[Rfam]
RNA sequence: UGGACUGUGCUUAGAAAGGAUCACUGCUACAGUGAUUCCUCUUGCAUACAUGUCAUAAAACAGAGCUUCACAGCAUCUCUGAUGAUGUCGAUCUCUGCACUGAUAAGGAAUUUGCUGGAGCUUGCUCCCAGCUAGAUGAAAUAUAUGGGAGCGUCCAAAUAUACCGUAUAUAGGAGAAACAAGAGAUCGUUACAUUGUUGUUGUUGUUUUUGCCAUUGUUUUUGGGGUCGCUCUGGGAACAAGCAUUUUUGGACACACCCAUAUCAGUGCAGACUUCUGAAGAGAU
Numbered sequence: 001u002g003g004a005c006u007g008u009g010c011u012u013a014g015a016a017a018g019g020a021u022c023a024c025u026g027c028u029a030c031a032g033u034g035a036u037u038c039c040u041c042u043u044g045c046a047u048a049c050a051u052g053u054c055a056u057a058a059a060a061c062a063g064a065g066c067u068u069c070a071c072a073g074c075a076u077c078u079c080u081g082a083u084g085a086u087g088u089c090g091a092u093c094u095c096u097g098c099a100c101u102g103a104u105a106a107g108g109a110a111u112u113u114g115c116u117g118g119a120g121c122u123u124g125c126u127c128c129c130a131g132c133u134a135g136a137u138g139a140a141a142u143a144u145a146u147g148g149g150a151g152c153g154u155c156c157a158a159a160u161a162u163a164c165c166g167u168a169u170a171u172a173g174g175a176g177a178a179a180c181a182a183g184a185g186a187u188c189g190u191u192a193c194a195u196u197g198u199u200g201u202u203g204u205u206g207u208u209u210u211u212g213c214c215a216u217u218g219u220u221u222u223u224g225g226g227g228u229c230g231c232u233c234u235g236g237g238a239a240c241a242a243g244c245a246u247u248u249u250u251g252g253a254c255a256c257a258c259c260c261a262u263a264u265c266a267g268u269g270c271a272g273a274c275u276u277c278u279g280a281a282g283a284g285a286u
Stems, first nucleotide, its partner, number of pairs: 002040002006035001008034004017028002020025001046068001050067001053064002076285005094273005100267006114132003118127001146261004151256001

The record is a 286-nucleotide RNA from Polarella glacialis, which matches "ACEA small nucleolar RNA U3" in Rfam.
The match comes from Rfam's covariance-model search (59 bits).
Rfam describes the family as follows. Small nucleolar RNAs (snoRNAs) are involved in the processing and modification of rRNA in the nucleolus. There are two main classes of snoRNAs: the box C/D class, and the box H/ACA class. U3 snoRNA is a member of the box C/D class.
The source organism's lineage runs through Eukaryota, Alveolata, Dinophyceae, Suessiales and Polarella.